This 93-nucleotide sequence from Nocardia panacis belongs to the Rfam family "Glycine riboswitch aptamer". Rfam's curators write: This family represents the bacterial glycine riboswitch. NCBI's taxonomy places the organism under Bacteria, Bacillati, Mycobacteriales, Nocardiaceae, Nocardia.
[Rfam]
RNA sequence: GCCACUCUGAAAAGCAGGCGCACCCGCGCCUCACCCACGGUGCAAACCGCUUCUCGCGGUGAAGCUCUCAGGUCCCAUGACAGAGGGGGAGUA
Numbered sequence: 001g002c003c004a005c006u007c008u009g010a011a012a013a014g015c016a017g018g019c020g021c022a023c024c025c026g027c028g029c030c031u032c033a034c035c036c037a038c039g040g041u042g043c044a045a046a047c048c049g050c051u052u053c054u055c056g057c058g059g060u061g062a063a064g065c066u067c068u069c070a071g072g073u074c075c076c077a078u079g080a081c082a083g084a085g086g087g088g089g090a091g092u093a
Base pairs, nucleotide, nucleotide: 002088003087005085006084007083008082009081016031017030018029019028033073034072035071037068040067042065046060047059048058049057